Shown here is a 47-nucleotide sequence from Roseiconus nitratireducens, a member of the family "Acido-Lenti-1 RNA".

[Rfam]
RNA sequence: CCCAGCCCUGACGGGCUGGGCUGGACAAACGACGGGCCUUCGGCCCG
Numbered sequence: 001c002c003c004a005g006c007c008c009u010g011a012c013g014g015g016c017u018g019g020g021c022u023g024g025a026c027a028a029a030c031g032a033c034g035g036g037c038c039u040u041c042g043g044c045c046c047g
Base pairs, nucleotide, nucleotide: 001020002019003018004017005016006015007014008013034046035045036044037043038042
Dot-bracket structure: ((((((((....)))))))).............(((((...))))).

Pairs were carried over by alignment from the consensus structure, which is taken from published work. Lineage of the source: Bacteria > Pseudomonadati > Pirellulales > Pirellulaceae > Roseiconus. It scores 38 bits against the family's covariance model.